Shown here is a 124-nucleotide RNA sequence from Plectus sambesii, a member of the family "Vault RNA". This family of RNAs are found as part of the enigmatic vault ribonucleoprotein complex. The complex consists of a major vault protein (MVP), two minor vault proteins (VPARP and TEP1), and several small untranslated RNA molecules. It has been suggested that the vault complex is involved in drug resistance.

RNA sequence: GUGCCGGCAUAGCCGAAUGGUUACUUCGAUGAAACUUGAAAUUGUCCUCCUCUUGGUCAGGUCUGACAGCCUCAAACUGCGGCCUGAAAACCGCACAUAACCAGCGGCGCCGUCUGGCACUUUU
Numbered sequence: 001g002u003g004c005c006g007g008c009a010u011a012g013c014c015g016a017a018u019g020g021u022u023a024c025u026u027c028g029a030u031g032a033a034a035c036u037u038g039a040a041a042u043u044g045u046c047c048u049c050c051u052c053u054u055g056g057u058c059a060g061g062u063c064u065g066a067c068a069g070c071c072u073c074a075a076a077c078u079g080c081g082g083c084c085u086g087a088a089a090a091c092c093g094c095a096c097a098u099a100a101c102c103a104g105c106g107g108c109g110c111c112g113u114c115u116g117g118c119a120c121u122u123u124u
Base pairs, nucleotide, nucleotide: 002119003118004117005116006115007114012108013107014106015105018103019102020101025088026087027086028085
The base pairs follow the family's consensus structure, which is taken from published work.